[Rfam]
RNA sequence: GGUCAUGAGUGCCAGCACCAAGCCCCGGCUUGCUGGCCGCCAACCCUCCUCCGCGGUGGGGUGGCCCGGGUGACGACCUGGCCCGUUGCGCGGUGCAACGGGCAAGCGCGGAUC
Number, nucleotide and partner (000 for none) at each position: 001g078002g077003u076004c075005a000006u000007g000008a000009g038010u000011g037012c036013c035014a034015g033016c032017a000018c000019c000020a000021a030022g029023c000024c000025c000026c000027g000028g000029c022030u021031u000032g016033c015034u014035g013036g012037c011038c009039g065040c064041c063042a000043a000044c061045c060046c059047u000048c056049c055050u000051c000052c000053g000054c000055g049056g048057u000058g000059g046060g045061g044062u000063g041064g040065c039066c000067c000068g000069g000070g000071u000072g000073a000074c000075g004076a003077c002078c001079u000080g000081g103082c102083c101084c100085g099086u098087u097088g096089c095090g094091c000092g000093g000094u090095g089096c088097a087098a086099c085100g084101g083102g082103c081104a000105a000106g000107c000108g000109c000110g000111g000112a000113u000114c000